This 373-nucleotide RNA from Succinatimonas hippei belongs to the Rfam family "Bacterial RNase P class A".
RNA sequence: CAAGUCAGCCAGGCAAUCGCUGCUGUGCACGCGUGUUUUUGCAUACGGUCACAGGGGAGGAAAGUCCGGGCUCCAUAGGACGGGGUGCCAGAUAACGUCUGGGAAGCGUGAGCUUACGACAAGUGCAACAGAAAGUAUACCGCCGGAACUUGUUUUCGGUAAGGGUGAAAUGGUGCGGUAAGAGCGCACCGCGUUUUUAGUAAUAAAAACGGCAGGGUAAACUCCACCCGGAGCAAGAUCAAAUAGGUCUCCAUUUUGUGUGGUCCGCACGGGAGACGGGUAGAUUGCUUGAACCGAUGAGCAAUUGUCGGUCUAGAUGAAUGAUUGCCGCUGCUUUGCAGAACAGAACCCGGCUUACAGGCUGACUUGCUAU
Numbered sequence: 001c002a003a004g005u006c007a008g009c010c011a012g013g014c015a016a017u018c019g020c021u022g023c024u025g026u027g028c029a030c031g032c033g034u035g036u037u038u039u040u041g042c043a044u045a046c047g048g049u050c051a052c053a054g055g056g057g058a059g060g061a062a063a064g065u066c067c068g069g070g071c072u073c074c075a076u077a078g079g080a081c082g083g084g085g086u087g088c089c090a091g092a093u094a095a096c097g098u099c100u101g102g103g104a105a106g107c108g109u110g111a112g113c114u115u116a117c118g119a120c121a122a123g124u125g126c127a128a129c130a131g132a133a134a135g136u137a138u139a140c141c142g143c144c145g146g147a148a149c150u151u152g153u154u155u156u157c158g159g160u161a162a163g164g165g166u167g168a169a170a171u172g173g174u175g176c177g178g179u180a181a182g183a184g185c186g187c188a189c190c191g192c193g194u195u196u197u198u199a200g201u202a203a204u205a206a207a208a209a210c211g212g213c214a215g216g217g218u219a220a221a222c223u224c225c226a227c228c229c230g231g232a233g234c235a236a237g238a239u240c241a242a243a244u245a246g247g248u249c250u251c252c253a254u255u256u257u258g259u260g261u262g263g264u265c266c267g268c269a270c271g272g273g274a275g276a277c278g279g280g281u282a283g284a285u286u287g288c289u290u291g292a293a294c295c296g297a298u299g300a301g302c303a304a305u306u307g308u309c310g311g312u313c314u315a316g317a318u319g320a321a322u323g324a325u326u327g328c329c330g331c332u333g334c335u336u337u338g339c340a341g342a343a344c345a346g347a348a349c350c351c352g353g354c355u356u357a358c359a360g361g362c363u364g365a366c367u368u369g370c371u372a373u
Stems, first nucleotide, its partner, number of pairs: 001369010012329007020057002023054005062356003066353005071233004078266004083229005088102005103117001104115004118224002123222002125218002140164002142160007172190006191213001192211008237286004247277006257271005293312008
The family's RNA type in Rfam is ribozyme.